[Rfam]
RNA sequence: AGAGGAAGGAUCCAAAGGGAUCGCAUUGAUCCUAAUUAAGGUGAAUUUUCCCUAUUAUUUUCUUAUUUUUGAAAAAAAUAUCAAAAAUUUGCUUGGUUUUGGAUCAUGCCAUCUCUUUGGAUUCAUCCUU
Numbered sequence: 001a002g003a004g005g006a007a008g009g010a011u012c013c014a015a016a017g018g019g020a021u022c023g024c025a026u027u028g029a030u031c032c033u034a035a036u037u038a039a040g041g042u043g044a045a046u047u048u049u050c051c052c053u054a055u056u057a058u059u060u061u062c063u064u065a066u067u068u069u070u071g072a073a074a075a076a077a078a079u080a081u082c083a084a085a086a087a088u089u090u091g092c093u094u095g096g097u098u099u100u101g102g103a104u105c106a107u108g109c110c111a112u113c114u115c116u117u118u119g120g121a122u123u124c125a126u127c128c129u130u
Stems, first nucleotide, its partner, number of pairs: 002130005008124014023109004028105005038098001